[Rfam]
RNA sequence: GAAGACGCAUCGCAAGGGGCGUGUGACGCGAGAGACGUCAGCCGAGGUCAUCGUAGACUGGCGCGGCCGCGCCAGUUGAAGGAC
Numbered sequence: 001g002a003a004g005a006c007g008c009a010u011c012g013c014a015a016g017g018g019g020c021g022u023g024u025g026a027c028g029c030g031a032g033a034g035a036c037g038u039c040a041g042c043c044g045a046g047g048u049c050a051u052c053g054u055a056g057a058c059u060g061g062c063g064c065g066g067c068c069g070c071g072c073c074a075g076u077u078g079a080a081g082g083a084c
Stems, first nucleotide, its partner, number of pairs: 002024001005022004010017002038045002047084003056077006